[Rfam]
The record is an 85-nucleotide sequence from Desulfosporosinus orientis, which matches "Group II catalytic intron D1-D4-1" in Rfam. Taxonomically the source falls in Desulfosporosinus orientis (Bacteria, Clostridia, Desulfitobacteriaceae, Desulfosporosinus). A search with the family's covariance model found it, with a score of 47 bits.

RNA sequence: UAACCUGUAUCGAGAGAUGCGAUUGGGGCGGCAGAAGUCAACAGAGGACAUAGUUGCUUUUGGGUAGCUAACGAAAGUGAGGGUC
Numbered sequence: 001u002a003a004c005c006u007g008u009a010u011c012g013a014g015a016g017a018u019g020c021g022a023u024u025g026g027g028g029c030g031g032c033a034g035a036a037g038u039c040a041a042c043a044g045a046g047g048a049c050a051u052a053g054u055u056g057c058u059u060u061u062g063g064g065u066a067g068c069u070a071a072c073g074a075a076a077g078u079g080a081g082g083g084u085c
Base pairs, nucleotide, nucleotide: 001025002024006021007020008019009018010017011016038045039044047085048084049083056078057077058076059075060074061073
Dot-bracket structure: ((...((((((....))))))..))............((....)).(((......((((((...........))))))....)))